Bacterial RNase P class A: a 385-nucleotide sequence from Prevotella sp. CAG:487. Gene Ontology terms of the family: ribonuclease P activity, dimeric ribonuclease P complex and tRNA processing.
[Rfam]
RNA sequence: ACAGUGCUCCGGUCUGUCGCCGGCAUCAACUCGAUGCGGGAGGAAAGUCCGGACAGUGUAGGGCAUUCCACUUCUGAAAAUAGAAGCUGUUGGCAACAGCAGGGUAAGGCAGAAGAAAAUAACCGCCUGACAGAUGAUUAAUUAUCAUAAGGCAAGGGUGAGAAGGUAGUGUAAGAGACUACCAGCCGAUGGGUGACUAUCGGGCUGUGCCUCCUGGAAACUGCAAGUUCGCGUAUACCGUCGUUUGAAGAUUGCCCGUCUGACAAAGUUAUUUUGGCGACGGAGGGUAGAACGCUUGAUCCAUGAGGCGACUUAUGGACUAGAUAAAUGACAGAUGCCGUUUUUACGAACGGAACAGAACCCGGCUUACAGGAGCACUGUUUUC
Numbered sequence: 001a002c003a004g005u006g007c008u009c010c011g012g013u014c015u016g017u018c019g020c021c022g023g024c025a026u027c028a029a030c031u032c033g034a035u036g037c038g039g040g041a042g043g044a045a046a047g048u049c050c051g052g053a054c055a056g057u058g059u060a061g062g063g064c065a066u067u068c069c070a071c072u073u074c075u076g077a078a079a080a081u082a083g084a085a086g087c088u089g090u091u092g093g094c095a096a097c098a099g100c101a102g103g104g105u106a107a108g109g110c111a112g113a114a115g116a117a118a119a120u121a122a123c124c125g126c127c128u129g130a131c132a133g134a135u136g137a138u139u140a141a142u143u144a145u146c147a148u149a150a151g152g153c154a155a156g157g158g159u160g161a162g163a164a165g166g167u168a169g170u171g172u173a174a175g176a177g178a179c180u181a182c183c184a185g186c187c188g189a190u191g192g193g194u195g196a197c198u199a200u201c202g203g204g205c206u207g208u209g210c211c212u213c214c215u216g217g218a219a220a221c222u223g224c225a226a227g228u229u230c231g232c233g234u235a236u237a238c239c240g241u242c243g244u245u246u247g248a249a250g251a252u253u254g255c256c257c258g259u260c261u262g263a264c265a266a267a268g269u270u271a272u273u274u275u276g277g278c279g280a281c282g283g284a285g286g287g288u289a290g291a292a293c294g295c296u297u298g299a300u301c302c303a304u305g306a307g308g309c310g311a312c313u314u315a316u317g318g319a320c321u322a323g324a325u326a327a328a329u330g331a332c333a334g335a336u337g338c339c340g341u342u343u344u345u346a347c348g349a350a351c352g353g354a355a356c357a358g359a360a361c362c363c364g365g366c367u368u369a370c371a372g373g374a375g376c377a378c379u380g381u382u383u384u385c
Stems, first nucleotide, its partner, number of pairs: 001381010011370001012336007020040002023037005045368003049365004054223004061272001063270001066219005071086005087102001089100004103214002107212005123157002125153004130148001133145001165183006185205001186203007227293004238283005264276004300319008